[Rfam]
RNA: FMN riboswitch aptamer (RFN element)
RNA sequence: GUUCGUCUUCAGGGCAGGGUGCAAUUCCCGACCGGUGGUAAAGUCCAUGACCUGAAGGAAUAGUGUGUGUGGUCAAACGGUUUGACCAGACGCGCUGCUCCUUCAGCUGAUUCGGUGCAAUCCCGAAACCGAUAGUAUAGUCUAGAUAAAGAGAAGAUAAGG
Numbered sequence: 001g002u003u004c005g006u007c008u009u010c011a012g013g014g015c016a017g018g019g020u021g022c023a024a025u026u027c028c029c030g031a032c033c034g035g036u037g038g039u040a041a042a043g044u045c046c047a048u049g050a051c052c053u054g055a056a057g058g059a060a061u062a063g064u065g066u067g068u069g070u071g072g073u074c075a076a077a078c079g080g081u082u083u084g085a086c087c088a089g090a091c092g093c094g095c096u097g098c099u100c101c102u103u104c105a106g107c108u109g110a111u112u113c114g115g116u117g118c119a120a121u122c123c124c125g126a127a128a129c130c131g132a133u134a135g136u137a138u139a140g141u142c143u144a145g146a147u148a149a150a151g152a153g154a155a156g157a158u159a160a161g162g
Base pairs, nucleotide, nucleotide: 003160005158006157007156008155009154010153017029018028019027031141032140033131034130035048036047037046038045043129044128052106053105054104055103056102057101058100059099111127112126113125114124115123133144134143135142